[Rfam]
RNA sequence: UGGCAUAAACCCGUAGAUCCGAUCUUGUGGUGAAGUGGACCGCACAAGCUCGCUUCUAUGGGUCUGUGUCAG
Numbered sequence: 001u002g003g004c005a006u007a008a009a010c011c012c013g014u015a016g017a018u019c020c021g022a023u024c025u026u027g028u029g030g031u032g033a034a035g036u037g038g039a040c041c042g043c044a045c046a047a048g049c050u051c052g053c054u055u056c057u058a059u060g061g062g063u064c065u066g067u068g069u070c071a072g
Stems, first nucleotide, its partner, number of pairs: 002070006010062003015057003020052003024048006
This 72-nucleotide RNA sequence belongs to the Rfam family "mir-10 microRNA precursor family".
Gene Ontology terms of the family: RISC complex and miRNA-mediated post-transcriptional gene silencing.
The literature on the family includes a 2001 paper in Science by Lee and Ambros, "An extensive class of small RNAs in Caenorhabditis elegans".